[Rfam]
RNA: Small nucleolar RNA snoR109
Organism: Papaver somniferum
RNA sequence: CGGCUGUAGCUAUAUAAAUGAAAAAAGAAGUUUACUGGCCGGUUGUUGUGAGAUUUUUCUCUUUAAUCGACAUAUCUGCUUACCGAACUUCUCACAAAU
Numbered sequence: 001c002g003g004c005u006g007u008a009g010c011u012a013u014a015u016a017a018a019u020g021a022a023a024a025a026a027g028a029a030g031u032u033u034a035c036u037g038g039c040c041g042g043u044u045g046u047u048g049u050g051a052g053a054u055u056u057u058u059c060u061c062u063u064u065a066a067u068c069g070a071c072a073u074a075u076c077u078g079c080u081u082a083c084c085g086a087a088c089u090u091c092u093c094a095c096a097a098a099u
Stems, first nucleotide, its partner, number of pairs: 026092007037080003041076003045071004